Source information
Shown here is a 552-nucleotide part of an RNA from Candidatus Nitrosotenuis cloacae, a member of the family "Archaeal large subunit ribosomal RNA". A reference for the family is Yusupov et al. (2001), "Crystal structure of the ribosome at 5.5 A resolution", Science.

[Rfam]
RNA sequence: GCAUAGACGCCAGUAGGAGGAUUGCUAGGCUUGAGAAGAGAUGAAGGACGUGGCAAGCUGCGAUAAGCCCGGGGUAGGCGCAAGCGUCCUAUGAUCCCGGGAUCUCCGAAUAGGAAUCCUGUAUUUACAUACACACCGUCCGCAAGGGCGGUGAUCGAACCGUGGGAAUUGAAGCAUCUUAGUACCAUGUGGAAGAGAAAUCAAUUGAGAUAUCCCAAGUAGCGGCGAGCGAAACGGAAACAGCCCAAACUGAAUCUGCUGUGGUAACAUGGCAGAGAUGUGGUGUUCGGUUAUGAUAUUACGAUCCAAGAAUGCAGCCGAAGUUUUUUGGAACAUUAUGGCAUAGAGGGUGAUACCCCCGUAGGCGAAACAGUAUUGGAUCUUAUCAUGACCAGAGUACUUGUCCUUGGCAGUGGGCAAGGAAAUUAGGUGAAAGUAGCAUCUAAGGCUAAACAUUACUCAAGACCGAUAGUGAACUAGUACCGUGAGGGAAAGCUGAAAAGUACCCCGGAAGGGGGGUGAAAAGUGCAUGAAACCUACUGGUUACAGACG
Numbered sequence: 001g002c003a004u005a006g007a008c009g010c011c012a013g014u015a016g017g018a019g020g021a022u023u024g025c026u027a028g029g030c031u032u033g034a035g036a037a038g039a040g041a042u043g044a045a046g047g048a049c050g051u052g053g054c055a056a057g058c059u060g061c062g063a064u065a066a067g068c069c070c071g072g073g074g075u076a077g078g079c080g081c082a083a084g085c086g087u088c089c090u091a092u093g094a095u096c097c098c099g100g101g102a103u104c105u106c107c108g109a110a111u112a113g114g115a116a117u118c119c120u121g122u123a124u125u126u127a128c129a130u131a132c133a134c135a136c137c138g139u140c141c142g143c144a145a146g147g148g149c150g151g152u153g154a155u156c157g158a159a160c161c162g163u164g165g166g167a168a169u170u171g172a173a174g175c176a177u178c179u180u181a182g183u184a185c186c187a188u189g190u191g192g193a194a195g196a197g198a199a200a201u202c203a204a205u206u207g208a209g210a211u212a213u214c215c216c217a218a219g220u221a222g223c224g225g226c227g228a229g230c231g232a233a234a235c236g237g238a239a240a241c242a243g244c245c246c247a248a249a250c251u252g253a254a255u256c257u258g259c260u261g262u263g264g265u266a267a268c269a270u271g272g273c274a275g276a277g278a279u280g281u282g283g284u285g286u287u288c289g290g291u292u293a294u295g296a297u298a299u300u301a302c303g304a305u306c307c308a309a310g311a312a313u314g315c316a317g318c319c320g321a322a323g324u325u326u327u328u329u330g331g332a333a334c335a336u337u338a339u340g341g342c343a344u345a346g347a348g349g350g351u352g353a354u355a356c357c358c359c360c361g362u363a364g365g366c367g368a369a370a371c372a373g374u375a376u377u378g379g380a381u382c383u384u385a386u387c388a389u390g391a392c393c394a395g396a397g398u399a400c401u402u403g404u405c406c407u408u409g410g411c412a413g414u415g416g417g418c419a420a421g422g423a424a425a426u427u428a429g430g431u432g433a434a435a436g437u438a439g440c441a442u443c444u445a446a447g448g449c450u451a452a453a454c455a456u457u458a459c460u461c462a463a464g465a466c467c468g469a470u471a472g473u474g475a476a477c478u479a480g481u482a483c484c485g486u487g488a489g490g491g492a493a494a495g496c497u498g499a500a501a502a503g504u505a506c507c508c509c510g511g512a513a514g515g516g517g518g519g520u521g522a523a524a525a526g527u528g529c530a531u532g533a534a535a536c537c538u539a540c541u542g543g544u545u546a547c548a549g550a551c552g
Base pairs, nucleotide, nucleotide: 009544010543011542012541013540014539015538016537017536023530024496025495028467029466030464031463032462033461034460035459036457037456046107047106048105049062050061051060068101069100070099071098072097073096077089078088112120113119114118134153135152136151137150138149139148140147141146160191161189162188163187164186165185171178172177201208202207213238214237215236222230223229242450243449244448245447250283251282252281260271261270262269263268294388295387296386297385303382304381305380306379317366318365319364323339325338328335342346348360349359350358400421401420402419403418404417405416406415428444429443430442431441432440483490484489